[Rfam]
RNA sequence: GUUAUUGCUUUGAAAAGGAGUAGUAGUAUUUUUUUCAAUUUAAGAGAGUUGUCGGUAGCUGCAAGACAAUAUUGAUAAUUUACGAACUUGCCUUUGAGCUUAUCUGUAAGAAGCAGAUACGGAUUAAACCGUUAUAUUUUUUAAAGUGAAGCUUUAAGCUUAAUUAGAGUGGUACCGCGGAAAUUACACCUUUCGUCUCUUUA
Numbered sequence: 001g002u003u004a005u006u007g008c009u010u011u012g013a014a015a016a017g018g019a020g021u022a023g024u025a026g027u028a029u030u031u032u033u034u035u036c037a038a039u040u041u042a043a044g045a046g047a048g049u050u051g052u053c054g055g056u057a058g059c060u061g062c063a064a065g066a067c068a069a070u071a072u073u074g075a076u077a078a079u080u081u082a083c084g085a086a087c088u089u090g091c092c093u094u095u096g097a098g099c100u101u102a103u104c105u106g107u108a109a110g111a112a113g114c115a116g117a118u119a120c121g122g123a124u125u126a127a128a129c130c131g132u133u134a135u136a137u138u139u140u141u142u143a144a145a146g147u148g149a150a151g152c153u154u155u156a157a158g159c160u161u162a163a164u165u166a167g168a169g170u171g172g173u174a175c176c177g178c179g180g181a182a183a184u185u186a187c188a189c190c191u192u193u194c195g196u197c198u199c200u201u202u203a
Stems, first nucleotide, its partner, number of pairs: 007099002015094004026083003031078001037073003048070006102118006120131003149161005166200004177196005
The record is a 203-nucleotide RNA from Clostridium novyi, which matches "T-box leader" in Rfam. The match comes from Rfam's covariance-model search (140 bits).